[Rfam]
RNA sequence: UCGCACAGUGAACACCCAUGUGUGCUCUGUAGCUCCUUUGGUUAUCAAUCUGUGCUAAAGAAAAGUUUGGUCUGUACCUCUGCAUCCAAAGAGUCUCAUUCUUUUAGAUGUAUUCAACGGACCAGUACAAAU
Numbered sequence: 001u002c003g004c005a006c007a008g009u010g011a012a013c014a015c016c017c018a019u020g021u022g023u024g025c026u027c028u029g030u031a032g033c034u035c036c037u038u039u040g041g042u043u044a045u046c047a048a049u050c051u052g053u054g055c056u057a058a059a060g061a062a063a064a065g066u067u068u069g070g071u072c073u074g075u076a077c078c079u080c081u082g083c084a085u086c087c088a089a090a091g092a093g094u095c096u097c098a099u100u101c102u103u104u105u106a107g108a109u110g111u112a113u114u115c116a117a118c119g120g121a122c123c124a125g126u127a128c129a130a131a132u
Stems, first nucleotide, its partner, number of pairs: 003055006010049001014045001016041003020037001022035001024033003057073001059071001062068001081116002083110004088104006
RNA: Small nucleolar RNA SNORA22